This 151-nucleotide RNA from Brassica napus belongs to the Rfam family "small nucleolar RNA snoR134". Rfam links the family to the GO terms nucleolus and RNA processing.

RNA sequence: UCGCAGGAGCCUCCCGGGCUAGUCUGAAAAUAAUGAGUCAUGACUCAUGAGGAAUUAAGCCCCAAAGCUCCUGCUAGAUUUGUACCAUUCGUGUUGCAGUUCUGUCUCUAAUCUUAUCUGGCUUAAUUGUGUCAAAGCAAUGUCUAGAUUU
Numbered sequence: 001u002c003g004c005a006g007g008a009g010c011c012u013c014c015c016g017g018g019c020u021a022g023u024c025u026g027a028a029a030a031u032a033a034u035g036a037g038u039c040a041u042g043a044c045u046c047a048u049g050a051g052g053a054a055u056u057a058a059g060c061c062c063c064a065a066a067g068c069u070c071c072u073g074c075u076a077g078a079u080u081u082g083u084a085c086c087a088u089u090c091g092u093g094u095u096g097c098a099g100u101u102c103u104g105u106c107u108c109u110a111a112u113c114u115u116a117u118c119u120g121g122c123u124u125a126a127u128u129g130u131g132u133c134a135a136a137g138c139a140a141u142g143u144c145u146a147g148a149u150u151u
Base pairs, nucleotide, nucleotide: 003074004073005072006071007070008069009068010067016062017061018060019059020058021056022055023053024052025051086142087141088140089139092134093133095131096130097129098128099127100126104122105121106120
A reference for the family is Chen and Wu (2009), "Mining small RNA sequencing data: a new approach to identify small nucleolar RNAs in Arabidopsis", Nucleic Acids Res. Rfam classes the family as an H/ACA-box small nucleolar RNA.